[Rfam]
Overview: Shown here is a 113-nucleotide RNA sequence from Kalanchoe fedtschenkoi, a member of the family "MIR168 microRNA precursor family". The family's consensus secondary structure was predicted with WAR. A reference for the family is Reinhart et al. (2002), "MicroRNAs in plants", Genes Dev. Rfam links the family to the GO terms miRNA-mediated post-transcriptional gene silencing and RISC complex.

RNA sequence: GUCACGGGAGCCUCUAAUUCGCUUGAUGCAGGUCGGGAAGCGACUGCCUCCGGUCCGCAAUUGGAAAAACUGCUUCCCGCCUUGCAUCAACUGAGUCGGAGACUGCGGUGAUG
Numbered sequence: 001g002u003c004a005c006g007g008g009a010g011c012c013u014c015u016a017a018u019u020c021g022c023u024u025g026a027u028g029c030a031g032g033u034c035g036g037g038a039a040g041c042g043a044c045u046g047c048c049u050c051c052g053g054u055c056c057g058c059a060a061u062u063g064g065a066a067a068a069a070c071u072g073c074u075u076c077c078c079g080c081c082u083u084g085c086a087u088c089a090a091c092u093g094a095g096u097c098g099g100a101g102a103c104u105g106c107g108g109u110g111a112u113g
Base pairs, nucleotide, nucleotide: 013100014099017096018095019094020093023090024089025088026087027086028085029084030083031082032081034079035078036077037076038075040073041072